[Rfam]
RNA sequence: GGACAUAAACGCGCUCGUAAUACGCGGAUCGGACCCGGGGGCGGUACCCGGCCACUCCACCAUUACCCCCGUUCAUUUGGCGGUCAUGGGGUGGAAAUAGGAUCGACGAACGUCUAAAGGGGUUUUGCUUUGUCUCGGUGAGGUACCACCGUUAUCGGUCCGAAAAGUACAAUUGCAAAUGACAAUCGUGCUCCGAUGGCUGUUGCCGCGUAA
Numbered sequence: 001g002g003a004c005a006u007a008a009a010c011g012c013g014c015u016c017g018u019a020a021u022a023c024g025c026g027g028a029u030c031g032g033a034c035c036c037g038g039g040g041g042c043g044g045u046a047c048c049c050g051g052c053c054a055c056u057c058c059a060c061c062a063u064u065a066c067c068c069c070c071g072u073u074c075a076u077u078u079g080g081c082g083g084u085c086a087u088g089g090g091g092u093g094g095a096a097a098u099a100g101g102a103u104c105g106a107c108g109a110a111c112g113u114c115u116a117a118a119g120g121g122g123u124u125u126u127g128c129u130u131u132g133u134c135u136c137g138g139u140g141a142g143g144u145a146c147c148a149c150c151g152u153u154a155u156c157g158g159u160c161c162g163a164a165a166a167g168u169a170c171a172a173u174u175g176c177a178a179a180u181g182a183c184a185a186u187c188g189u190g191c192u193c194c195g196a197u198g199g200c201u202g203u204u205g206c207c208g209c210g211u212a213a
Stems, first nucleotide, its partner, number of pairs: 001135005013123004025112002029109003035051005052094007136151004

permuted transfer-messenger RNA: a 213-nucleotide RNA from Puniceibacterium antarcticum. Taxonomically the source falls in Puniceibacterium (Bacteria, Pseudomonadota, Rhodobacterales, Paracoccaceae). Bacterial tmRNA, also known as 10Sa RNA or SsrA, is named for its dual tRNA and mRNA-like properties. Its role is to liberate the mRNA from a stalled ribosome.